[Rfam]
RNA sequence: GGUUCGGGAGCUGCACGGUGGGACGAGCGGCAAGUAUGGAACCUCACCCCUACAUUCGUAGCCUGCGUUCCGGGGGCCCCGACCCGGAUCGU
Numbered sequence: 001g002g003u004u005c006g007g008g009a010g011c012u013g014c015a016c017g018g019u020g021g022g023a024c025g026a027g028c029g030g031c032a033a034g035u036a037u038g039g040a041a042c043c044u045c046a047c048c049c050c051u052a053c054a055u056u057c058g059u060a061g062c063c064u065g066c067g068u069u070c071c072g073g074g075g076g077c078c079c080c081g082a083c084c085c086g087g088a089u090c091g092u
Stems, first nucleotide, its partner, number of pairs: 001043005010031005016025002065092003069088006
Record summary
This 92-nucleotide sequence from Paracoccus amoyensis belongs to the Rfam family "Rhodo-rpoB RNA". Taxonomically the source falls in Paracoccus (Bacteria, Pseudomonadota, Alphaproteobacteria, Paracoccaceae). It is annotated as a cis-regulatory element. The base pairs follow the family's consensus structure, which is taken from published work.